This 83-nucleotide RNA from Flavobacterium caeni belongs to the Rfam family "Flavo-1 RNA". The family's consensus secondary structure is taken from published work. The family has 201 seed sequences and 7,497 matches in Rfam 15.1.

[Rfam]
RNA sequence: UUUGCGUUAGCGAUUGCAGCGGCAUCCUUUUGUGGCAAAGCGCAGCGAAGCCAUAAAAGAUAAAGCGGAAAGCGCGACGGCGG
Dot-bracket structure: .........(((.((...((...(((...(((((((.............)))))))..)))...))...)).)))........